[Rfam]
Nucleotides: 036
Stems, first nucleotide, its partner, number of pairs: 002021004010035003
Number, partner (000 for none) and nucleotide at each position: 001000c002021a003020a004019g005018g006000g007000a008000g009000a010035g011034c012033c013000g014000a015000a016000a017000a018005c019004c020003u021002u022000c023000g024000a025000a026000c027000a028000g029000a030000g031000u032000a033012g034011g035010c036000g

DUF805b RNA: a 36-nucleotide sequence from Mucilaginibacter terrenus.
It is annotated as a cis-regulatory element.
The source organism's lineage runs through Bacteria, Pseudomonadati, Sphingobacteriales, Sphingobacteriaceae and Mucilaginibacter.
The match comes from Rfam's covariance-model search (40 bits).